[Rfam]
RNA sequence: GGUCCAAACUUGAAGUAGAGUACAAGUAUGGUCAGAUGAUCGUACUAUUAGACUCUACUUCAAAUUUGGGUCC
Numbered sequence: 001g002g003u004c005c006a007a008a009c010u011u012g013a014a015g016u017a018g019a020g021u022a023c024a025a026g027u028a029u030g031g032u033c034a035g036a037u038g039a040u041c042g043u044a045c046u047a048u049u050a051g052a053c054u055c056u057a058c059u060u061c062a063a064a065u066u067u068g069g070g071u072c073c
Stems, first nucleotide, its partner, number of pairs: 001072008011062011025046004030041004
The record is a 73-nucleotide sequence from Haemonchus placei, which matches "mir-5928 microRNA precursor family" in Rfam. The organism belongs to Haemonchus, within Eukaryota. The match comes from Rfam's covariance-model search (60 bits). The base pairs follow the family's consensus structure, which was predicted with RNAalifold. Rfam links the family to the GO terms miRNA-mediated post-transcriptional gene silencing and RISC complex.